RNA sequence: UGCCUUUGAGUUGCCCAUUCAGUCUUGUCCAAAACUAAUGUGGUGUCAAAAAAGGCAAACAGAAUUCUUGCUCAGAGUGUUUAAGGAGCUGGUUAUUUACCUUGCUCCUGCCUGUUUUUGCAAGGACAAAA
Numbered sequence: 001u002g003c004c005u006u007u008g009a010g011u012u013g014c015c016c017a018u019u020c021a022g023u024c025u026u027g028u029c030c031a032a033a034a035c036u037a038a039u040g041u042g043g044u045g046u047c048a049a050a051a052a053a054g055g056c057a058a059a060c061a062g063a064a065u066u067c068u069u070g071c072u073c074a075g076a077g078u079g080u081u082u083a084a085g086g087a088g089c090u091g092g093u094u095a096u097u098u099a100c101c102u103u104g105c106u107c108c109u110g111c112c113u114g115u116u117u118u119u120g121c122a123a124g125g126a127c128a129a130a131a
Base pairs, nucleotide, nucleotide: 002056003055004054005053006052007051010047012045013044014043015042016040017039018038019037021036022035023034067124068123069122070121073120074119075118076117084113085112086111087109088108091101092100

Overview
The record is a 131-nucleotide RNA sequence from Turnix velox, which matches "Small nucleolar RNA SNORA13" in Rfam. Rfam's curators write: ACA13 is a member of the H/ACA class of snoRNA that guide the sites of modification of uridines to pseudouridines. Lineage of the source: Eukaryota > Vertebrata > Sarcopterygii > Saurischia > Turnix. Its Rfam clan is "SNORA13 clan". It is annotated as an H/ACA-box small nucleolar RNA. The family's consensus secondary structure was predicted with CMfinder.